[Rfam]
RNA sequence: GAGAAAUGAUGAGGAUUUAUGUGAACUAUUGAUGUCUGUGAAGACUAAUAAUCCAACUCUGAUCUCAUACAUAGC
Numbered sequence: 001g002a003g004a005a006a007u008g009a010u011g012a013g014g015a016u017u018u019a020u021g022u023g024a025a026c027u028a029u030u031g032a033u034g035u036c037u038g039u040g041a042a043g044a045c046u047a048a049u050a051a052u053c054c055a056a057c058u059c060u061g062a063u064c065u066c067a068u069a070c071a072u073a074g075c
Base pairs, nucleotide, nucleotide: 001066002065003064004063
A member of the RNA family "Small nucleolar RNA SNORD19" from Oncorhynchus tshawytscha, 75 nucleotides long. Pairs were carried over by alignment from the consensus structure. For this family Rfam cites "RNomics: an experimental approach that identifies 201 candidates for novel, small, non-messenger RNAs in mouse" (Huttenhofer et al., EMBO J, 2001).